The family of this 91-nucleotide RNA from Diachasma alloeum is "mir-317 microRNA precursor family". On this family, see Stark et al., Genome Res 2007: "Systematic discovery and characterization of fly microRNAs using 12 Drosophila genomes". The family's consensus secondary structure was predicted with RNAalifold. A search with the family's covariance model found it, with a score of 66 bits. Lineage of the source: Eukaryota > Pterygota > Endopterygota > Opiinae > Diachasma. Rfam links the family to the GO terms miRNA-mediated post-transcriptional gene silencing and RISC complex.
RNA sequence: GCCCUCGUAGAACAGGGAUCCACUCUGGGUUCACUCUGUUGAUAAUGAAGCGAGUGAACACAGCUGGUGGUAUCUCAGUUUUCUGAGGGCG
Numbered sequence: 001g002c003c004c005u006c007g008u009a010g011a012a013c014a015g016g017g018a019u020c021c022a023c024u025c026u027g028g029g030u031u032c033a034c035u036c037u038g039u040u041g042a043u044a045a046u047g048a049a050g051c052g053a054g055u056g057a058a059c060a061c062a063g064c065u066g067g068u069g070g071u072a073u074c075u076c077a078g079u080u081u082u083c084u085g086a087g088g089g090c091g
Base pairs, nucleotide, nucleotide: 009081010080011079015076016074017073020070022068023067024066025063026062027061029059031057032056